[Rfam]
RNA sequence: UCCAGAUCAAUGAUGCAACCAUAAUCUGCGUUAUCUUUCUGUAAACUCCUUGGAAGGAUUUGAAGAUAUGCUUAUAUACUGAGAUCUGGU
Numbered sequence: 001u002c003c004a005g006a007u008c009a010a011u012g013a014u015g016c017a018a019c020c021a022u023a024a025u026c027u028g029c030g031u032u033a034u035c036u037u038u039c040u041g042u043a044a045a046c047u048c049c050u051u052g053g054a055a056g057g058a059u060u061u062g063a064a065g066a067u068a069u070g071c072u073u074a075u076a077u078a079c080u081g082a083g084a085u086c087u088g089g090u
Stems, first nucleotide, its partner, number of pairs: 002089006